[Rfam]
RNA sequence: CCCUUAACUAUUAAAAGUUUCGUUUUGGUCCCUUAACUUAUUUUUUGGUUUCGUUUUGGUCCCUUAACUUAUUUUUUGGUUUCGUUUUGGUCCCUUAACUCUUCCUCCGUCAACCACUUUGGUCCUUUAUGUUAGGAUGAAUGUAUUAGAGUUAAGGACCAAAACGAAAUAAAAAAAAAAAAGUUAAGGGACCAAAACGAAACCAAAAAAUAAGUUAAGGGACCAAAACGAAACUUUUAAUAGUUAAGGGA
Numbered sequence: 001c002c003c004u005u006a007a008c009u010a011u012u013a014a015a016a017g018u019u020u021c022g023u024u025u026u027g028g029u030c031c032c033u034u035a036a037c038u039u040a041u042u043u044u045u046u047g048g049u050u051u052c053g054u055u056u057u058g059g060u061c062c063c064u065u066a067a068c069u070u071a072u073u074u075u076u077u078g079g080u081u082u083c084g085u086u087u088u089g090g091u092c093c094c095u096u097a098a099c100u101c102u103u104c105c106u107c108c109g110u111c112a113a114c115c116a117c118u119u120u121g122g123u124c125c126u127u128u129a130u131g132u133u134a135g136g137a138u139g140a141a142u143g144u145a146u147u148a149g150a151g152u153u154a155a156g157g158a159c160c161a162a163a164a165c166g167a168a169a170u171a172a173a174a175a176a177a178a179a180a181a182a183g184u185u186a187a188g189g190g191a192c193c194a195a196a197a198c199g200a201a202a203c204c205a206a207a208a209a210a211u212a213a214g215u216u217a218a219g220g221g222a223c224c225a226a227a228a229c230g231a232a233a234c235u236u237u238u239a240a241u242a243g244u245u246a247a248g249g250g251a
Stems, first nucleotide, its partner, number of pairs: 002249007023228003027224003031220013045206003